[Rfam]
RNA sequence: UGGCUGUGAUGACAACAAGAUCACUUCUUCAUAACUUAAUUUCAGUUAAGGACCAAACCUGAUGACUUUAUUUGUGCGUGUCUGAGCCGG
Numbered sequence: 001u002g003g004c005u006g007u008g009a010u011g012a013c014a015a016c017a018a019g020a021u022c023a024c025u026u027c028u029u030c031a032u033a034a035c036u037u038a039a040u041u042u043c044a045g046u047u048a049a050g051g052a053c054c055a056a057a058c059c060u061g062a063u064g065a066c067u068u069u070a071u072u073u074g075u076g077c078g079u080g081u082c083u084g085a086g087c088c089g090g
Base pairs, nucleotide, nucleotide: 001089002088003087004086
This 90-nucleotide RNA from Triticum urartu belongs to the Rfam family "small nucleolar RNA snoR126". The base pairs follow the family's consensus structure, which was predicted with RNAalifold. The source organism's lineage runs through Eukaryota, Magnoliopsida, Poaceae, Triticodae and Triticum. The family's RNA type in Rfam is C/D-box small nucleolar RNA. The literature on the family includes a 2009 paper in Nucleic Acids Res by Chen and Wu, "Mining small RNA sequencing data: a new approach to identify small nucleolar RNAs in Arabidopsis".